[Rfam]
RNA sequence: AAAACAGCCUUAUAUUUCACUCAUAUAAUAGCGGGAAUAUGGCUCGCAAGUUUCUACCGACUUACCGUAAAUAAGUUGACUAUGAGAGAGACAAUGUUUAGA
Numbered sequence: 001a002a003a004a005c006a007g008c009c010u011u012a013u014a015u016u017u018c019a020c021u022c023a024u025a026u027a028a029u030a031g032c033g034g035g036a037a038u039a040u041g042g043c044u045c046g047c048a049a050g051u052u053u054c055u056a057c058c059g060a061c062u063u064a065c066c067g068u069a070a071a072u073a074a075g076u077u078g079a080c081u082a083u084g085a086g087a088g089a090g091a092c093a094a095u096g097u098u099u100a101g102a
Base pairs, nucleotide, nucleotide: 018088020086021085022084023083024082025081029049031047032046033045034044035043058078059077060076061075062074063073064072

Purine riboswitch aptamer: a 102-nucleotide RNA sequence from Ureibacillus sinduriensis. The base pairs follow the family's consensus structure, which is taken from published work. Lineage of the source: Bacteria > Bacillota > Bacilli > Caryophanales > Ureibacillus sinduriensis.